[Rfam]
RNA sequence: CUUCAAUGACCCCAGCCACAGCGGCUGAUCCUCCGGCCGCUCCUGACCGUAGGUGGCCAGGAGUGCCUGGGCCUC
Numbered sequence: 001c002u003u004c005a006a007u008g009a010c011c012c013c014a015g016c017c018a019c020a021g022c023g024g025c026u027g028a029u030c031c032u033c034c035g036g037c038c039g040c041u042c043c044u045g046a047c048c049g050u051a052g053g054u055g056g057c058c059a060g061g062a063g064u065g066c067c068u069g070g071g072c073c074u075c
Stems, first nucleotide, its partner, number of pairs: 014026004031071003038065002043060003047056003
RNA: ASpks TB sRNA